[Rfam]
RNA sequence: UUGUAAAAAAUGCCGAAUCAGCACAGCACAAGUGCUUGUACGGGGGACUUCUUUCUUGGGGUGAAUAUUCGCGUGCCUAUAGGCAGCGACUAAGGGAAACCUCUUCCCUAACCCGUCAACUAACCUCGGAGGCGAAUAGGAGGAAUUUG
Numbered sequence: 001u002u003g004u005a006a007a008a009a010a011u012g013c014c015g016a017a018u019c020a021g022c023a024c025a026g027c028a029c030a031a032g033u034g035c036u037u038g039u040a041c042g043g044g045g046g047a048c049u050u051c052u053u054u055c056u057u058g059g060g061g062u063g064a065a066u067a068u069u070c071g072c073g074u075g076c077c078u079a080u081a082g083g084c085a086g087c088g089a090c091u092a093a094g095g096g097a098a099a100c101c102u103c104u105u106c107c108c109u110a111a112c113c114c115g116u117c118a119a120c121u122a123a124c125c126u127c128g129g130a131g132g133c134g135a136a137u138a139g140g141a142g143g144a145a146u147u148u149g
Stems, first nucleotide, its partner, number of pairs: 011134004019038002041128005050058001059114003067091001069089004094108004
A member of the RNA family "c-di-AMP riboswitch aptamer (ydaO/yuaA leader)" from Paenibacillus rigui, 149 nucleotides long.